Rfam assigns this 67-nucleotide RNA sequence from Chinchilla lanigera to the family "Small nucleolar RNA SNORD109A". The family is grouped with related families in Rfam's "SNORD74 clan". It is annotated as a C/D-box small nucleolar RNA. Gene Ontology terms of the family: nucleolus and RNA processing. About the family: Humans have two copies of the SNORD109 gene, SNORD109A and SNORD109B.
RNA sequence: GGAUCGAUGAUGAGAGCAAUUGUCUGAGGACGCUGAAGGACUCAUUGCAGAUGUCAAUCUGAGGUCC
Numbered sequence: 001g002g003a004u005c006g007a008u009g010a011u012g013a014g015a016g017c018a019a020u021u022g023u024c025u026g027a028g029g030a031c032g033c034u035g036a037a038g039g040a041c042u043c044a045u046u047g048c049a050g051a052u053g054u055c056a057a058u059c060u061g062a063g064g065u066c067c
Base pairs, nucleotide, nucleotide: 001067002066003065004064005063